[Rfam]
RNA: Lysine riboswitch aptamer
Organism: Blautia sp. An46
RNA sequence: UGAGACGAUAGAGGCGCAGGUUUCAAGAGUAGCCUUCUGCACAGGGCGGGGACAGCCGCAGAAGAGGAAAGGGGAAGCUGCCGAAGGAAGACUAUCCGCCCGGGAGGUCUUCCUGGAAUACUGUAUAAUAUACCGUAUUCUGUCACGAAAAGUGGAGCGCUAUCCGUUUC
Numbered sequence: 001u002g003a004g005a006c007g008a009u010a011g012a013g014g015c016g017c018a019g020g021u022u023u024c025a026a027g028a029g030u031a032g033c034c035u036u037c038u039g040c041a042c043a044g045g046g047c048g049g050g051g052a053c054a055g056c057c058g059c060a061g062a063a064g065a066g067g068a069a070a071g072g073g074g075a076a077g078c079u080g081c082c083g084a085a086g087g088a089a090g091a092c093u094a095u096c097c098g099c100c101c102g103g104g105a106g107g108u109c110u111u112c113c114u115g116g117a118a119u120a121c122u123g124u125a126u127a128a129u130a131u132a133c134c135g136u137a138u139u140c141u142g143u144c145a146c147g148a149a150a151a152g153u154g155g156a157g158c159g160c161u162a163u164c165c166g167u168u169u170c
Stems, first nucleotide, its partner, number of pairs: 007164005016081004021076004034064006085114009095104002115141007123133003143155004